[Rfam]
RNA sequence: ACACGGGAGAGGAGGUGGUCCAGCGUUGAAUAGCUACAGGACUCGUGAGGUGGCUGUCCGCUAGCACCACGGGACUCGUUUCCGACGGCCAUGUGGAAGCCGGUGUGGUGCCGGCAAAUCCAGGCAGUCACCCGUGAUCCCCGGGUCCGAGCCCGUCCAGCUCGGUCACGCAGCACGCUGCGGCCCGGGGAUCACGCAUGUC
Numbered sequence: 001a002c003a004c005g006g007g008a009g010a011g012g013a014g015g016u017g018g019u020c021c022a023g024c025g026u027u028g029a030a031u032a033g034c035u036a037c038a039g040g041a042c043u044c045g046u047g048a049g050g051u052g053g054c055u056g057u058c059c060g061c062u063a064g065c066a067c068c069a070c071g072g073g074a075c076u077c078g079u080u081u082c083c084g085a086c087g088g089c090c091a092u093g094u095g096g097a098a099g100c101c102g103g104u105g106u107g108g109u110g111c112c113g114g115c116a117a118a119u120c121c122a123g124g125c126a127g128u129c130a131c132c133c134g135u136g137a138u139c140c141c142c143g144g145g146u147c148c149g150a151g152c153c154c155g156u157c158c159a160g161c162u163c164g165g166u167c168a169c170g171c172a173g174c175a176c177g178c179u180g181c182g183g184c185c186c187g188g189g190g191a192u193c194a195c196g197c198a199u200g201u202c
Stems, first nucleotide, its partner, number of pairs: 014058006060115003064111002067108004072101002133196013147165006
RNA: Actinobacteria sRNA Ms_IGR-5